[Rfam]
A member of the RNA family "Glutamine-II riboswitch aptamer" from Angmobvirus SCBP1, 84 nucleotides long. A search with the family's covariance model found it, with a score of 46 bits. Gene Ontology term of the family: glutamine binding. The literature on the family includes a 2019 paper in Nucleic Acids Res by Huang et al., "Structure and ligand binding of the glutamine-II riboswitch". The family's consensus secondary structure is taken from published work.
RNA sequence: GUCCGUUCAUUCCCGCAAAACCUGCAUUGGUAGGUCCGCAAAACCGGGAACGCAUGACACCUACUCAUGGAACGGGGGGUAGGU
Dot-bracket structure: ...[[[[[.(((((...............................)))))........((((((((...]]]]].)).))))))